Background
The family of this 128-nucleotide RNA from Staphylothermus marinus is "tRNA". Rfam links the family to the GO term triplet codon-amino acid adaptor activity. Pairs were carried over by alignment from the consensus structure, which is taken from published work. The organism belongs to Staphylothermus marinus, within Archaea.

RNA sequence: GCCGCCGUAGCUCAGCCCGGUAGAGCGCCGGCCUUGUAAGCCCGAAGAGACCAAGGAACUAAUUCAGGCCCGUACAAUACAUAGGCCGGGAGAGCCGGUGGUCGCGGGUUCAAAUCCCGCCGGCGGCU
Numbered sequence: 001g002c003c004g005c006c007g008u009a010g011c012u013c014a015g016c017c018c019g020g021u022a023g024a025g026c027g028c029c030g031g032c033c034u035u036g037u038a039a040g041c042c043c044g045a046a047g048a049g050a051c052c053a054a055g056g057a058a059c060u061a062a063u064u065c066a067g068g069c070c071c072g073u074a075c076a077a078u079a080c081a082u083a084g085g086c087c088g089g090g091a092g093a094g095c096c097g098g099u100g101g102u103c104g105c106g107g108g109u110u111c112a113a114a115u116c117c118c119g120c121c122g123g124c125g126g127c128u
Stems, first nucleotide, its partner, number of pairs: 001127007010026004028098005104120005